[Rfam]
The family of this 129-nucleotide RNA sequence from Streptomyces roseochromogenus is "Streptomyces-metH RNA".
RNA sequence: CGCGUCCGCCUCGUGGACGCCGCUGCCCAUCCAAGCCGACUCCCGGUUACGCUGGCGCCGUGCGGCAUCCCGGCCCGCCCGGGAGAGCCGCAUAGCCGACAGCCGUCGCAUAGAGGGAGCCCCUUCAUG
Numbered sequence: 001c002g003c004g005u006c007c008g009c010c011u012c013g014u015g016g017a018c019g020c021c022g023c024u025g026c027c028c029a030u031c032c033a034a035g036c037c038g039a040c041u042c043c044c045g046g047u048u049a050c051g052c053u054g055g056c057g058c059c060g061u062g063c064g065g066c067a068u069c070c071c072g073g074c075c076c077g078c079c080c081g082g083g084a085g086a087g088c089c090g091c092a093u094a095g096c097c098g099a100c101a102g103c104c105g106u107c108g109c110a111u112a113g114a115g116g117g118a119g120c121c122c123c124u125u126c127a128u129g
Stems, first nucleotide, its partner, number of pairs: 061092004068084006095109002098107003